[Rfam]
RNA sequence: GUUUUGAUGGCAGUGAAGUUAGUGAUUGCACAGCCAGGAAUACAAUCAGCUAACUACACUGCCUGCAAACC
Dot-bracket structure: ..((((..((.((((.((((((((((((.(..........).)))))).)))))).)))).))..))))..

Record summary: This 71-nucleotide RNA from Oreotrochilus melanogaster belongs to the Rfam family "mir-34 microRNA precursor family". Pairs were carried over by alignment from the consensus structure, which was predicted with RNAalifold. Lineage of the source: Eukaryota > Craniata > Vertebrata > Archosauria > Oreotrochilus. It scores 55 bits against the family's covariance model. From the family's description: Human mir-34a was discovered computationally and later experimentally verified.